RNA: mir-221 microRNA precursor family
Organism: Neogobius melanostomus
RNA sequence: UUUAGCCUGAACCUGGCAUACAAUGUAGAUUUCUGUGUGGCUUUAUUCUACAGCUACAUUGUCUGCUGGGUUUCAGGCGAGCUAC
Numbered sequence: 001u002u003u004a005g006c007c008u009g010a011a012c013c014u015g016g017c018a019u020a021c022a023a024u025g026u027a028g029a030u031u032u033c034u035g036u037g038u039g040g041c042u043u044u045a046u047u048c049u050a051c052a053g054c055u056a057c058a059u060u061g062u063c064u065g066c067u068g069g070g071u072u073u074c075a076g077g078c079g080a081g082c083u084a085c
Stems, first nucleotide, its partner, number of pairs: 013069006020062009033053004